The family of this 86-nucleotide RNA sequence from Rhizobacter sp. Root404 is "SucA RNA motif". It is annotated as a cis-regulatory element. Taxonomically the source falls in Rhizobacter (Bacteria, Pseudomonadota, Betaproteobacteria, Burkholderiales). It scores 65 bits against the family's covariance model.

Nucleotides: 086
Base pairs, nucleotide, nucleotide: 002086003085004084008036009035010034011033012032017027018026019025020024038049039048040047041046050082051081052080058074059073060072061071062070063069064068
Number, partner (000 for none) and nucleotide at each position: 001000u002086c003085g004084c005000u006000u007000c008036u009035c010034c011033g012032c013000a014000a015000a016000g017027u018026g019025g020024u021000c022000u023000a024020g025019c026018c027017g028000c029000g030000u031000c032012g033011c034010g035009g036008a037000a038049g039048g040047u041046u042000u043000u044000u045000c046041a047040a048039c049038c050082c051081a052080c053000a054000c055000u056000c057000a058074g059073c060072g061071c062070c063069g064068g065000a066000a067000a068064c069063c070062g071061g072060u073059g074058c075000g076000a077000a078000a079000g080052g081051u082050g083000a084004g085003c086002g